[Rfam]
RNA sequence: AGCAAAAUGGGCAAGUCAUCCCAUCUGAAAGUUCAGUGCUGAUAACGCAUAGAUGGUUGUCAAAGUUCUUUGGUUGCU
Numbered sequence: 001a002g003c004a005a006a007a008u009g010g011g012c013a014a015g016u017c018a019u020c021c022c023a024u025c026u027g028a029a030a031g032u033u034c035a036g037u038g039c040u041g042a043u044a045a046c047g048c049a050u051a052g053a054u055g056g057u058u059g060u061c062a063a064a065g066u067u068c069u070u071u072g073g074u075u076g077c078u
Stems, first nucleotide, its partner, number of pairs: 001078005
Shown here is a 78-nucleotide RNA from Oryza punctata, a member of the family "Small nucleolar RNA R160". The pairing is the family consensus, mapped onto this sequence. Gene Ontology terms of the family: RNA processing and nucleolus. A search with the family's covariance model found it, with a score of 47 bits. Rfam describes the family as follows. snoR160 is a C/D box small nucleolar RNA, which acts as a methylation guide for 25S ribosomal RNA in plants. snoR160 has been alternatively named snoZ270 in rice. A reference for the family is Chen et al. (2003), "The high diversity of snoRNAs in plants: identification and comparative study of 120 snoRNA genes from Oryza sativa", Nucleic Acids Res.